[Rfam]
RNA sequence: GGGGGGGCAGCGGUUAAGACUUGUAGUGAUGUUUAGCUCAUCUCCACGUGAACAUCACUGCAAGUCUGUGCUGCUUCUC
Numbered sequence: 001g002g003g004g005g006g007g008c009a010g011c012g013g014u015u016a017a018g019a020c021u022u023g024u025a026g027u028g029a030u031g032u033u034u035a036g037c038u039c040a041u042c043u044c045c046a047c048g049u050g051a052a053c054a055u056c057a058c059u060g061c062a063a064g065u066c067u068g069u070g071c072u073g074c075u076u077c078u079c
Stems, first nucleotide, its partner, number of pairs: 017067007026058010
Rfam assigns this 79-nucleotide RNA sequence from Ornithorhynchus anatinus to the family "mir-499 microRNA precursor family". It is one of the family's seed sequences. Taxonomically the source falls in Ornithorhynchus (Eukaryota, Vertebrata, Gnathostomata, Prototheria).